About this RNA
This 86-nucleotide RNA from Faecalibacterium gallinarum belongs to the Rfam family "S10-Clostridia ribosomal protein leader". The family's consensus secondary structure is taken from published work. The source organism's lineage runs through Bacteria, Bacillota, Clostridia, Eubacteriales and Faecalibacterium.

RNA sequence: GAUAUGCGUUGAUGCGGGAGGUUGCCGGCCGGCUAUAGCCGAGUCGGGUUUUUCCGCGGAGUAUGUCCGAUCUAAGAACCGGGCGA
Numbered sequence: 001g002a003u004a005u006g007c008g009u010u011g012a013u014g015c016g017g018g019a020g021g022u023u024g025c026c027g028g029c030c031g032g033c034u035a036u037a038g039c040c041g042a043g044u045c046g047g048g049u050u051u052u053u054c055c056g057c058g059g060a061g062u063a064u065g066u067c068c069g070a071u072c073u074a075a076g077a078a079c080c081g082g083g084c085g086a
Stems, first nucleotide, its partner, number of pairs: 014057003018054004025047005064085006071078001